[Rfam]
RNA sequence: ACGCGGAAAGGAGGUGGUCCAAACAAUGGUGAUUCAUAGUUGGGCUAGCGAGGUGGUUGUCCGCUAACGAAGCGGACUCCAUUGUCUCGCGUCGUUUCGGCGAAAUUCGAGGCAACCACCGGGGCCCCGCGGCUGCUGGGGGGCGGGAGGUCCAUCCCGACCCAUGGCCCAUCCAGCCCGCCCGCUCGAGCGGGCGGAGCCUGCCCGGGGCCCUUUCGCC
Numbered sequence: 001a002c003g004c005g006g007a008a009a010g011g012a013g014g015u016g017g018u019c020c021a022a023a024c025a026a027u028g029g030u031g032a033u034u035c036a037u038a039g040u041u042g043g044g045c046u047a048g049c050g051a052g053g054u055g056g057u058u059g060u061c062c063g064c065u066a067a068c069g070a071a072g073c074g075g076a077c078u079c080c081a082u083u084g085u086c087u088c089g090c091g092u093c094g095u096u097u098c099g100g101c102g103a104a105a106u107u108c109g110a111g112g113c114a115a116c117c118a119c120c121g122g123g124g125c126c127c128c129g130c131g132g133c134u135g136c137u138g139g140g141g142g143g144c145g146g147g148a149g150g151u152c153c154a155u156c157c158c159g160a161c162c163c164a165u166g167g168c169c170c171a172u173c174c175a176g177c178c179c180g181c182c183c184g185c186u187c188g189a190g191c192g193g194g195c196g197g198a199g200c201c202u203g204c205c206c207g208g209g210g211c212c213c214u215u216u217c218g219c220c
Stems, first nucleotide, its partner, number of pairs: 013061006062102004067095004072090003121214009131205003
RNA: Actinobacteria sRNA Ms_IGR-5
Organism: Nonomuraea endophytica